This 80-nucleotide sequence belongs to the Rfam family "Small nucleolar RNA R160". Gene Ontology terms of the family: nucleolus and RNA processing. The pairing is the family consensus, mapped onto this sequence. It is one of the family's seed sequences. The literature on the family includes a 2003 paper in Nucleic Acids Res by Chen et al., "The high diversity of snoRNAs in plants: identification and comparative study of 120 snoRNA genes from Oryza sativa".
Nucleotides: 080
Base pairs, nucleotide, nucleotide: 001080002079003078004077005076
Number, partner (000 for none) and nucleotide at each position: 001080a002079g003078c004077a005076a006000a007000a008000u009000g010000a011000g012000g013000a014000g015000a016000u017000c018000a019000a020000u021000c022000g023000a024000u025000c026000u027000g028000a029000a030000g031000u032000a033000u034000c035000u036000a037000a038000u039000g040000u041000u042000g043000a044000u045000a046000u047000a048000u049000c050000c051000a052000u053000u054000c055000a056000u057000g058000g059000u060000c061000u062000u063000c064000a065000a066000a067000g068000u069000u070000c071000u072000c073000u074000g075000a076005u077004u078003g079002c080001u